[Rfam]
RNA sequence: GACUCGGACUAACGCUGCCAUGACUCUCAAACCUUGUCAGGACCGGAAGGUAGCAGCAAUACGAGAUGCUCAUGGUAGGCGUCAGUUCCGGGUCUUU
Numbered sequence: 001g002a003c004u005c006g007g008a009c010u011a012a013c014g015c016u017g018c019c020a021u022g023a024c025u026c027u028c029a030a031a032c033c034u035u036g037u038c039a040g041g042a043c044c045g046g047a048a049g050g051u052a053g054c055a056g057c058a059a060u061a062c063g064a065g066a067u068g069c070u071c072a073u074g075g076u077a078g079g080c081g082u083c084a085g086u087u088c089c090g091g092g093u094c095u096u097u
Stems, first nucleotide, its partner, number of pairs: 004091005009085002012082003017076006025066004034059004042051003
RNA: Bacterial small signal recognition particle RNA